RNA sequence: UCGGGAAAACAGCCUCCCGGCUCGAUCAGGCGGAUUCCGUCCAAGCGCUG
Numbered sequence: 001u002c003g004g005g006a007a008a009a010c011a012g013c014c015u016c017c018c019g020g021c022u023c024g025a026u027c028a029g030g031c032g033g034a035u036u037c038c039g040u041c042c043a044a045g046c047g048c049u050g
Base pairs, nucleotide, nucleotide: 001020002019003018004017005016006015010050011049012048013047029041030040031039032038033037